A member of the RNA family "S4-Flavobacteria ribosomal protein leader" from Cyprinus carpio, 35 nucleotides long. The base pairs follow the family's consensus structure, which is taken from published work. Its Rfam clan is "Ribosomal Protein S4 Leader clan". Taxonomically the source falls in Cyprinus carpio (Eukaryota, Gnathostomata, Neopterygii, Ostariophysi).
[Rfam]
RNA sequence: CAAAAUCGGAGGAAAAAAUACCUUAAUUCAUAUUG
Number, nucleotide and partner (000 for none) at each position: 001c035002a034003a033004a000005a031006u030007c000008g029009g024010a023011g022012g021013a000014a000015a000016a000017a000018a000019u000020a000021c012022c011023u010024u009025a000026a000027u000028u000029c008030a006031u005032a000033u003034u002035g001
About this RNA: By type it is a cis-regulatory leader.